[Rfam]
RNA sequence: AUUCCAGAGGUGGUGCAACCCGCACCACUCCGGCAGCAAGCGAAGGUGUCAUUGACGCCCGUGGUAUAGUCCCCCGGCUAUACCACGUAAUUUUUUA
Numbered sequence: 001a002u003u004c005c006a007g008a009g010g011u012g013g014u015g016c017a018a019c020c021c022g023c024a025c026c027a028c029u030c031c032g033g034c035a036g037c038a039a040g041c042g043a044a045g046g047u048g049u050c051a052u053u054g055a056c057g058c059c060c061g062u063g064g065u066a067u068a069g070u071c072c073c074c075c076g077g078c079u080a081u082a083c084c085a086c087g088u089a090a091u092u093u094u095u096u097a
Stems, first nucleotide, its partner, number of pairs: 009029008033041002045059006060087012
This 97-nucleotide RNA from Vibrio aquimaris belongs to the Rfam family "Translational regulator of tfoXVC". Taxonomically the source falls in Vibrio (Bacteria, Pseudomonadati, Pseudomonadota, Vibrionales). It is annotated as a small RNA. It scores 95 bits against the family's covariance model.